[Rfam]
RNA sequence: UCGUCGAGGUCGCCGUCCAGCGGGACGAGGCGGGGACCCACCGCAGUACUGGGGUGAAUCCCGCCGCCGAGCACCGCUCGGAGGCCGGUAGGGCUGCUUCCCGCCCGAACCCGUCAGCUAACUCGGUAGGCGGCCACGGAAGAACGG
Numbered sequence: 001u002c003g004u005c006g007a008g009g010u011c012g013c014c015g016u017c018c019a020g021c022g023g024g025a026c027g028a029g030g031c032g033g034g035g036a037c038c039c040a041c042c043g044c045a046g047u048a049c050u051g052g053g054g055u056g057a058a059u060c061c062c063g064c065c066g067c068c069g070a071g072c073a074c075c076g077c078u079c080g081g082a083g084g085c086c087g088g089u090a091g092g093g094c095u096g097c098u099u100c101c102c103g104c105c106c107g108a109a110c111c112c113g114u115c116a117g118c119u120a121a122c123u124c125g126g127u128a129g130g131c132g133g134c135c136a137c138g139g140a141a142g143a144a145c146g147g
Stems, first nucleotide, its partner, number of pairs: 001028005029127001031125004039051002052112003060088002063085003091106004
RNA: c-di-AMP riboswitch aptamer (ydaO/yuaA leader)
Organism: Geodermatophilus sp. DF01-2